RNA sequence: CACCCGGGACGACCCGGGCCCCGCACGUUCACCGGGGGCGACCCC
Numbered sequence: 001c002a003c004c005c006g007g008g009a010c011g012a013c014c015c016g017g018g019c020c021c022c023g024c025a026c027g028u029u030c031a032c033c034g035g036g037g038g039c040g041a042c043c044c045c
Stems, first nucleotide, its partner, number of pairs: 003018006034045004
Guanidine-II riboswitch aptamer (mini-ykkC): a 45-nucleotide RNA sequence from Actinomadura sp. WAC 06369. On this family, see Sherlock et al., Biochemistry 2017: "Biochemical Validation of a Second Guanidine Riboswitch Class in Bacteria". Taxonomically the source falls in Actinomadura (Bacteria, Bacillati, Actinomycetota, Streptosporangiales). Simpler in structure and has fewer highly conserved nucleotide positions than the ykkC-yxkD leader. Despite this each of its two stem-loop structures directly bind free guanidine. Therefore, mini-ykkC RNA motif represents a distinct class of guanidine-sensing RNAs. Its crystal structure was also determined. It scores 33 bits against the family's covariance model.